[Rfam]
Notes
The family of this 102-nucleotide RNA from Lysinibacillus odysseyi is "Purine riboswitch aptamer". Pairs were carried over by alignment from the consensus structure, which is taken from published work. Its family is annotated with purine nucleobase biosynthetic process in the Gene Ontology.
RNA sequence: AAAUCGUGAUAUAUCUUUACUCAUAUAAUAGCGGGAAUAAGGCCCGCAAGUUUCUACCGACUGACCGUAAAUUUGUCGACUAUGAGGAGCAGGUUUUACUAG
Numbered sequence: 001a002a003a004u005c006g007u008g009a010u011a012u013a014u015c016u017u018u019a020c021u022c023a024u025a026u027a028a029u030a031g032c033g034g035g036a037a038u039a040a041g042g043c044c045c046g047c048a049a050g051u052u053u054c055u056a057c058c059g060a061c062u063g064a065c066c067g068u069a070a071a072u073u074u075g076u077c078g079a080c081u082a083u084g085a086g087g088a089g090c091a092g093g094u095u096u097u098a099c100u101a102g
Base pairs, nucleotide, nucleotide: 018088020086021085022084023083024082025081029049031047032046033045034044035043058078059077060076061075063073064072